RNA sequence: AUGAACCACGCGUGCAUUACGGUUCCUGCACGCCGUCCGCACCCACCAGGCGGUUGCUCAGUCGUUUUGUUGGUC
Numbered sequence: 001a002u003g004a005a006c007c008a009c010g011c012g013u014g015c016a017u018u019a020c021g022g023u024u025c026c027u028g029c030a031c032g033c034c035g036u037c038c039g040c041a042c043c044c045a046c047c048a049g050g051c052g053g054u055u056g057c058u059c060a061g062u063c064g065u066u067u068u069g070u071u072g073g074u075c
Stems, first nucleotide, its partner, number of pairs: 002016002005013002020035004047073001049071005